Overview:
mir-202 microRNA precursor family: a 76-nucleotide RNA sequence from Polypterus senegalus. Rfam 15.1 lists 673 matches to the family in 631 species. Lineage of the source: Eukaryota > Cladistia > Polypteriformes > Polypteridae > Polypterus.
RNA sequence: UUGUUCCGUUUUCCUAUGCAGAUACCUCUUUGAGAUUUAGCUGUAAAGAGGCAUACGGCAUUGGAAACCGGAGCAG
Numbered sequence: 001u002u003g004u005u006c007c008g009u010u011u012u013c014c015u016a017u018g019c020a021g022a023u024a025c026c027u028c029u030u031u032g033a034g035a036u037u038u039a040g041c042u043g044u045a046a047a048g049a050g051g052c053a054u055a056c057g058g059c060a061u062u063g064g065a066a067a068c069c070g071g072a073g074c075a076g
Base pairs, nucleotide, nucleotide: 010067011066012065013064014063016061017060018059019058022054023053025051026050027049028048029047030046031045032044